[Rfam]
RNA sequence: GGGCUGUGAUGACGGAGAACAUUUCUCGAUUCUGAUAAGGACCAAAGCAAGUUGUUUGCUGUGAUGACAAUGUUUGUGCGUGUCUGAGCCCA
Numbered sequence: 001g002g003g004c005u006g007u008g009a010u011g012a013c014g015g016a017g018a019a020c021a022u023u024u025c026u027c028g029a030u031u032c033u034g035a036u037a038a039g040g041a042c043c044a045a046a047g048c049a050a051g052u053u054g055u056u057u058g059c060u061g062u063g064a065u066g067a068c069a070a071u072g073u074u075u076g077u078g079c080g081u082g083u084c085u086g087a088g089c090c091c092a
Stems, first nucleotide, its partner, number of pairs: 001091004
Shown here is a 92-nucleotide sequence from Glycine max, a member of the family "small nucleolar RNA snoR126". Rfam 15.1 lists 423 matches to the family in 200 species. On this family, see Chen and Wu, Nucleic Acids Res 2009: "Mining small RNA sequencing data: a new approach to identify small nucleolar RNAs in Arabidopsis". The source organism's lineage runs through Eukaryota, Streptophytina, Pentapetalae, Fabales and Glycine subgen. Soja. A search with the family's covariance model found it, with a score of 77 bits.